[Rfam]
RNA sequence: UUUCGGCUGUCCAAAAGUCGAAAUUACUGAAGAGGCACACCUUCAUUGCCAGAAGUGCGGAUGCGGUUCUCCAAUUCCAAGCCAAGGCAGACAAAGCGGAGUAACGCUUAGUUUAGCGUUGUUCCAUCGCCGCAUAAAGUUUUCGCGUGACA
Numbered sequence: 001u002u003u004c005g006g007c008u009g010u011c012c013a014a015a016a017g018u019c020g021a022a023a024u025u026a027c028u029g030a031a032g033a034g035g036c037a038c039a040c041c042u043u044c045a046u047u048g049c050c051a052g053a054a055g056u057g058c059g060g061a062u063g064c065g066g067u068u069c070u071c072c073a074a075u076u077c078c079a080a081g082c083c084a085a086g087g088c089a090g091a092c093a094a095a096g097c098g099g100a101g102u103a104a105c106g107c108u109u110a111g112u113u114u115a116g117c118g119u120u121g122u123u124c125c126a127u128c129g130c131c132g133c134a135u136a137a138a139g140u141u142u143u144c145g146c147g148u149g150a151c152a
Base pairs, nucleotide, nucleotide: 001023002022003021004020005019006018007017008016034050035049036048037047057130058129059128082090099113100112102110103109

Rfam assigns this 152-nucleotide sequence from Brucella melitensis to the family "speF leader". The base pairs follow the family's consensus structure, which was predicted with RNAalifold. From the family's description: This family is a putative regulatory RNA structure that is found upstream of the speF gene encoding ornithine decarboxylase in Agrobacterium tumefaciens and other alpha-proteobacteria.